[Rfam]
RNA sequence: CAUUUGCCCUGCGUUAGGGAUUGAUGCGGCAUCCUUUUUGUGCUAGCCUUAAGCUACAUUAAAUAAACAAUUGUUCUGUUUUGCCAAUAUAUUGUUUAGAAGUUCUACACUUUUUAGCACAAAUAAAGAUAUAGCGGAAAGCCCGACCCUUG
Numbered sequence: 001c002a003u004u005u006g007c008c009c010u011g012c013g014u015u016a017g018g019g020a021u022u023g024a025u026g027c028g029g030c031a032u033c034c035u036u037u038u039u040g041u042g043c044u045a046g047c048c049u050u051a052a053g054c055u056a057c058a059u060u061a062a063a064u065a066a067a068c069a070a071u072u073g074u075u076c077u078g079u080u081u082u083g084c085c086a087a088u089a090u091a092u093u094g095u096u097u098a099g100a101a102g103u104u105c106u107a108c109a110c111u112u113u114u115u116a117g118c119a120c121a122a123a124u125a126a127a128g129a130u131a132u133a134g135c136g137g138a139a140a141g142c143c144c145g146a147c148c149c150u151u152g
Stems, first nucleotide, its partner, number of pairs: 017144003021140002026135002031130003037123010